[Rfam]
The record is an 84-nucleotide RNA sequence from Cynoglossus semilaevis, which matches "Small nucleolar RNA SNORD60" in Rfam. The source organism's lineage runs through Eukaryota, Teleostei, Pleuronectiformes, Cynoglossidae and Cynoglossus. The family's consensus secondary structure was predicted with PFOLD. A reference for the family is Galardi et al. (2002), "Purified box C/D snoRNPs are able to reproduce site-specific 2'-O-methylation of target RNA in vitro", Mol Cell Biol. A search with the family's covariance model found it, with a score of 51 bits. Its family is annotated with RNA processing and nucleolus in the Gene Ontology. It is annotated as a C/D-box small nucleolar RNA.
RNA sequence: AGCCUGUGAUGACAAUAAAACUUUCUGACACCUUCUAUGAGAGCUGAACUCCAGCUCCUGAUUCUAUAUUUUUUUCUGAGGCCA
Numbered sequence: 001a002g003c004c005u006g007u008g009a010u011g012a013c014a015a016u017a018a019a020a021c022u023u024u025c026u027g028a029c030a031c032c033u034u035c036u037a038u039g040a041g042a043g044c045u046g047a048a049c050u051c052c053a054g055c056u057c058c059u060g061a062u063u064c065u066a067u068a069u070u071u072u073u074u075u076c077u078g079a080g081g082c083c084a
Base pairs, nucleotide, nucleotide: 002082003081004080043055044054045053046052